[Rfam]
RNA: Small nucleolar RNA SNORD24
RNA sequence: UCUCAGUGAUGUUGUAUAUUUGCUACUCUUGAUGUAGAGUGAUGAGAAACUACCACCAAUAUUUGGUCUGAGAGA
Numbered sequence: 001u002c003u004c005a006g007u008g009a010u011g012u013u014g015u016a017u018a019u020u021u022g023c024u025a026c027u028c029u030u031g032a033u034g035u036a037g038a039g040u041g042a043u044g045a046g047a048a049a050c051u052a053c054c055a056c057c058a059a060u061a062u063u064u065g066g067u068c069u070g071a072g073a074g075a
Stems, first nucleotide, its partner, number of pairs: 001075004